RNA sequence: UUGCCCAGUCCAGGCUGUCUGUGCUGGGACUGGCCAACACAGGGGGGGAGAGAGAGCUCCUCUCUAAAACAUGGAGCAGGGUUCCCAUCUCUGCCCCACGUCCUGUCGGGAGGGACACGC
Numbered sequence: 001u002u003g004c005c006c007a008g009u010c011c012a013g014g015c016u017g018u019c020u021g022u023g024c025u026g027g028g029a030c031u032g033g034c035c036a037a038c039a040c041a042g043g044g045g046g047g048g049a050g051a052g053a054g055a056g057c058u059c060c061u062c063u064c065u066a067a068a069a070c071a072u073g074g075a076g077c078a079g080g081g082u083u084c085c086c087a088u089c090u091c092u093g094c095c096c097c098a099c100g101u102c103c104u105g106u107c108g109g110g111a112g113g114g115a116c117a118c119g120c
Stems, first nucleotide, its partner, number of pairs: 002049001004047003009042001014038001016036002019033001021030001058114001060112005072098003076094002079091003
RNA: Small nucleolar RNA SNORA26
Organism: Anguilla anguilla